The family of this 86-nucleotide RNA sequence from Ignelater luminosus is "mir-282 microRNA precursor family". The base pairs follow the family's consensus structure, which was predicted with RNAalifold. Taxonomically the source falls in Ignelater (Eukaryota, Metazoa, Hexapoda, Elateriformia). A search with the family's covariance model found it, with a score of 62 bits.

RNA sequence: AAAAGGGUAAGGGGUAGCCUCUCCUAGGCUUUGUCUAUAUUAUAAAAAAAGACAUAGCCUAACUGAGGUUAAUCCUAUCCUUUUAA
Numbered sequence: 001a002a003a004a005g006g007g008u009a010a011g012g013g014g015u016a017g018c019c020u021c022u023c024c025u026a027g028g029c030u031u032u033g034u035c036u037a038u039a040u041u042a043u044a045a046a047a048a049a050a051g052a053c054a055u056a057g058c059c060u061a062a063c064u065g066a067g068g069u070u071a072a073u074c075c076u077a078u079c080c081u082u083u084u085a086a
Stems, first nucleotide, its partner, number of pairs: 012074002015071006027059004032054005